[Rfam]
The record is a 188-nucleotide RNA sequence from Araneus ventricosus, which matches "U2 spliceosomal RNA" in Rfam. U2 is a small nuclear RNA (snRNA) component of the spliceosome (involved in pre-mRNA splicing). Rfam 15.1 lists 71,512 matches to the family in 2,642 species. A reference for the family is Zwieb (1997), "The uRNA database", Nucleic Acids Res. It is annotated as a spliceosomal small nuclear RNA. Taxonomically the source falls in Araneus (Eukaryota, Arthropoda, Araneomorphae, Entelegynae). A search with the family's covariance model found it, with a score of 85 bits. The base pairs follow the family's consensus structure, which is taken from published work. Rfam links the family to the GO terms pre-mRNA branch point binding, U2 snRNP and mRNA branch site recognition. Its Rfam clan is "U2 clan".
RNA sequence: AUGACUUAGCAGCAGAAACAUUCAGGCGGACAAUCUGUUCUUAUCAGCUUAAUCUCUGAUAGGGCGUUUAUCGAACGCUCCGAGAUUUUUAGCAAUUUUUGGAACAUGGGUCGAUGUCCGGAAUUCAUUCCGUUCGACCCCCGGGGUUAUUCUGCCUCUGCACUGCCGGCAGAAUUGGUCCUAAAAAU
Number, nucleotide and partner (000 for none) at each position: 001a021002u020003g000004a000005c000006u000007u000008a000009g000010c000011a000012g000013c000014a000015g000016a000017a000018a000019c000020a002021u001022u000023c000024a000025g000026g000027c000028g000029g000030a000031c000032a000033a000034u000035c000036u000037g000038u000039u000040c000041u000042u061043a060044u059045c058046a057047g056048c000049u000050u000051a000052a000053u000054c000055u000056c047057u046058g045059a044060u043061a042062g000063g079064g078065c077066g076067u075068u074069u073070a000071u000072c000073g069074a068075a067076c066077g065078c064079u063080c000081c000082g000083a000084g000085a000086u000087u000088u000089u000090u000091a000092g000093c000094a000095a000096u000097u000098u000099u000100u000101g000102g000103a000104a000105c000106a000107u000108g140109g139110g138111u137112c136113g135114a134115u000116g000117u000118c000119c000120g131121g130122a129123a128124u000125u000126c000127a000128u123129u122130c121131c120132g000133u000134u114135c113136g112137a111138c110139c109140c108141c000142c000143g000144g181145g180146g179147u178148u177149a176150u000151u173152c172153u171154g170155c169156c168157u000158c000159u000160g000161c000162a000163c000164u000165g000166c000167c000168g156169g155170c154171a153172g152173a151174a000175u000176u149177g148178g147179u146180c145181c144182u000183a000184a000185a000186a000187a000188u000